[Rfam]
RNA sequence: CAAGCAUGAAUGCUGCUAUUUUCCGUUUCUUUUUUUAUUUUAGCACCUGAUAUUAGGAGGCUUUUGCGUAAAAGAAGAAACGAAAAGUAGCGCUGAAGCCUCCCUGAGUGGAGGCUUUUUUAUU
Numbered sequence: 001c002a003a004g005c006a007u008g009a010a011u012g013c014u015g016c017u018a019u020u021u022u023c024c025g026u027u028u029c030u031u032u033u034u035u036u037a038u039u040u041u042a043g044c045a046c047c048u049g050a051u052a053u054u055a056g057g058a059g060g061c062u063u064u065u066g067c068g069u070a071a072a073a074g075a076a077g078a079a080a081c082g083a084a085a086a087g088u089a090g091c092g093c094u095g096a097a098g099c100c101u102c103c104c105u106g107a108g109u110g111g112a113g114g115c116u117u118u119u120u121u122a123u124u
Base pairs, nucleotide, nucleotide: 015091016090017089018088020086021085022084024082025081026080027079028078029077030076031075032074033073035071036070037069038068046057047056048055059065060064095118096117097116098115099114100113101112102111103110
Rfam assigns this 124-nucleotide RNA sequence from Biostraticola tofi to the family "Phenylalanine leader peptide". The organism belongs to Biostraticola, within Bacteria.